[Rfam]
RNA sequence: UAAUAUUGCAGGUUCAAAGAUUAUAUAAACUCGUAAUACGGACGGGUGUAUCUACAAACUGCCUUAAACUGUUUAACUAUAAUCCCCGAGUAGGGGCAU
Numbered sequence: 001u002a003a004u005a006u007u008g009c010a011g012g013u014u015c016a017a018a019g020a021u022u023a024u025a026u027a028a029a030c031u032c033g034u035a036a037u038a039c040g041g042a043c044g045g046g047u048g049u050a051u052c053u054a055c056a057a058a059c060u061g062c063c064u065u066a067a068a069c070u071g072u073u074u075a076a077c078u079a080u081a082a083u084c085c086c087c088g089a090g091u092a093g094g095g096g097c098a099u
Base pairs, nucleotide, nucleotide: 019084020083021082022081023080024079025078029047030046031045032044033043034042056074057073058072059071061069
RNA: Purine riboswitch aptamer
Organism: Eubacterium sp. CAG:202